[Rfam]
RNA sequence: UUCUUUCUUUCCACCACAUACUCGUGAACGGCUUGACACCAGCAUUCGUCUUCGGACGCAUAAUGGAGUUGCCGUUCAGUUUGACUUCGAGGAGCCAUCAAAUCCCCAUGAUGUCAAUUAUCUAGUCAACGGGUCUGAGAUCGAUUAAGCACCUGCAACCUCGAUGUUUUUGAGCCCUUCACGGGAGCUCGACGGAGAGACGGGUGUCUUAAGUCACUAUAUUCCAAAUCUUUUCGCAGAUGCCGUCGGCUUAUGAUGCUAAAGACUCACCAUGGUGAAUACAGUU
Dot-bracket structure: .................(.((((((((((((....((.(((..((.((((....)))).))..))).))..))))))....(((((....((.(.(.............).).))........))))))))))).)...........(..(((((..........(...((((((((......)).))))))).......))))).)......(((((((........(((((..(((...(((...)))......))).)))))......)))))))........